[Rfam]
RNA sequence: ACAAUUCUUCAGGGCAGGGUGAAAUUCCCGAUCGGCGGUAGAGUCCGCGACUCAAACAGCAAAUAUGCUGAAUGACUGAACCGGUUAAAUUCCGGUACCGACAGUAAAGUCUGGAUGGAAGAAGAAUCUG
Dot-bracket structure: ...(((((((......(((.......))).[[((((((....[[))))...((....................))....(((((.......)))))]])).(((....]]))).......)))))))...
Numbered sequence: 001a002c003a004a005u006u007c008u009u010c011a012g013g014g015c016a017g018g019g020u021g022a023a024a025u026u027c028c029c030g031a032u033c034g035g036c037g038g039u040a041g042a043g044u045c046c047g048c049g050a051c052u053c054a055a056a057c058a059g060c061a062a063a064u065a066u067g068c069u070g071a072a073u074g075a076c077u078g079a080a081c082c083g084g085u086u087a088a089a090u091u092c093c094g095g096u097a098c099c100g101a102c103a104g105u106a107a108a109g110u111c112u113g114g115a116u117g118g119a120a121g122a123a124g125a126a127u128c129u130g
Stems, first nucleotide, its partner, number of pairs: 004127007017029003031110002033100002035048004043098002052075002080096005102113003